[Rfam]
Plastid-psbA-1 3UTR RNA: a 119-nucleotide RNA from Haloxylon ammodendron. The organism belongs to Haloxylon, within Eukaryota. Rfam's curators put it in the seed alignment. For this family Rfam cites "Retrograde signaling in plants: A critical review focusing on the GUN pathway and beyond" (Richter et al., Plant Commun, 2023).

RNA sequence: UCGAAACUCCAUCUAUAAAUGGAUAAAAUUUCAUUUUUAGUUUAGUGUAUCCGAGUUAUUGAACGUAAAGGGGCAGUGCUGGUUUCUUGUUCUAUCAAGAAAUUAGUUAUUGCUCCUUU
Numbered sequence: 001u002c003g004a005a006a007c008u009c010c011a012u013c014u015a016u017a018a019a020u021g022g023a024u025a026a027a028a029u030u031u032c033a034u035u036u037u038u039a040g041u042u043u044a045g046u047g048u049a050u051c052c053g054a055g056u057u058a059u060u061g062a063a064c065g066u067a068a069a070g071g072g073g074c075a076g077u078g079c080u081g082g083u084u085u086c087u088u089g090u091u092c093u094a095u096c097a098a099g100a101a102a103u104u105a106g107u108u109a110u111u112g113c114u115c116c117u118u119u
Stems, first nucleotide, its partner, number of pairs: 008023005067119012080105003084101005